This 92-nucleotide RNA sequence from Boudabousia tangfeifanii belongs to the Rfam family "SAM riboswitch aptamer (S box leader)".
[Rfam]
RNA sequence: CAACCAUCCAGAGCGGCUGAGAGAUCUGGCUCCUUGACGCCGCAGCAACCCGAGCAACUGCUUGCGGGUGCUUCCGCCAGAAUCGAUGGAGG
Numbered sequence: 001c002a003a004c005c006a007u008c009c010a011g012a013g014c015g016g017c018u019g020a021g022a023g024a025u026c027u028g029g030c031u032c033c034u035u036g037a038c039g040c041c042g043c044a045g046c047a048a049c050c051c052g053a054g055c056a057a058c059u060g061c062u063u064g065c066g067g068g069u070g071c072u073u074c075c076g077c078c079a080g081a082a083u084c085g086a087u088g089g090a091g092g
Stems, first nucleotide, its partner, number of pairs: 001092001004089005013043005021032003026080004044072004049068002051064004076084001

Annotation:
It scores 57 bits against the family's covariance model.